[Rfam]
Nucleotides: 060
Stems, first nucleotide, its partner, number of pairs: 005056006015045001019046001021043009
Number, partner (000 for none) and nucleotide at each position: 001000g002000u003000c004000c005056u006055g007054a008053g009052u010051a011000g012000a013000a014000g015045c016000a017000g018000u019046c020000a021043g022042a023041a024040g025039c026038c027037g028036c029035c030000c031000u032000g033000u034000c035029g036028g037027c038026g039025g040024u041023u042022u043021c044000g045015g046019g047000u048000c049000a050000u051010u052009g053008c054007u055006c056005a057000g058000u059000c060000g

A member of the RNA family "Xanthine riboswitch aptamer (NMT1 RNA)" from Marinobacter lutaoensis, 60 nucleotides long.
Gene Ontology term of the family: purine nucleobase binding.
On this family, see Yu and Breaker, RNA 2020: "A bacterial riboswitch class senses xanthine and uric acid to regulate genes associated with purine oxidation".